[Rfam]
RNA sequence: GAUCAUGAGUCCCGGUGCAAAGCUCUGGCUAACCGGGCGGCAACCCUCCUGCUGUAGUGGGGUGCCCCAGAUGACGAUCCGGCCGUCACGCAACCGCGUGGCUGGCAAGUACGGCGC
Numbered sequence: 001g002a003u004c005a006u007g008a009g010u011c012c013c014g015g016u017g018c019a020a021a022g023c024u025c026u027g028g029c030u031a032a033c034c035g036g037g038c039g040g041c042a043a044c045c046c047u048c049c050u051g052c053u054g055u056a057g058u059g060g061g062g063u064g065c066c067c068c069a070g071a072u073g074a075c076g077a078u079c080c081g082g083c084c085g086u087c088a089c090g091c092a093a094c095c096g097c098g099u100g101g102c103u104g105g106c107a108a109g110u111a112c113g114g115c116g117c
Stems, first nucleotide, its partner, number of pairs: 001079004009038001011037006021030002039066003044062003048057001082106003085102007